[Rfam]
RNA sequence: CUAACUUUUCUUGCUCAAAUGAGUAUUCCAACCAACAUGAGCUAGCUGCACACACAUGGCAAUAUUGAUGAAUCAGAUGAUGAUGAUCUUUGUCUCAUGAUCGAUCUCUAUAUUUGACCAUGCUGCUGCUGCUGCUGCAUAUUUCUGAGAUGCUCAUUUGAGCAAGCAAUGUUAA
Numbered sequence: 001c002u003a004a005c006u007u008u009u010c011u012u013g014c015u016c017a018a019a020u021g022a023g024u025a026u027u028c029c030a031a032c033c034a035a036c037a038u039g040a041g042c043u044a045g046c047u048g049c050a051c052a053c054a055c056a057u058g059g060c061a062a063u064a065u066u067g068a069u070g071a072a073u074c075a076g077a078u079g080a081u082g083a084u085g086a087u088c089u090u091u092g093u094c095u096c097a098u099g100a101u102c103g104a105u106c107u108c109u110a111u112a113u114u115u116g117a118c119c120a121u122g123c124u125g126c127u128g129c130u131g132c133u134g135c136u137g138c139a140u141a142u143u144u145c146u147g148a149g150a151u152g153c154u155c156a157u158u159u160g161a162g163c164a165a166g167c168a169a170u171g172u173u174a175a
Base pairs, nucleotide, nucleotide: 004172005171007169008168010166011165012164013163014162015161016160017159018158019157020156021155022154023153024152025151026150027149029147030146
RNA: MIR828 microRNA precursor family
Organism: Juglans regia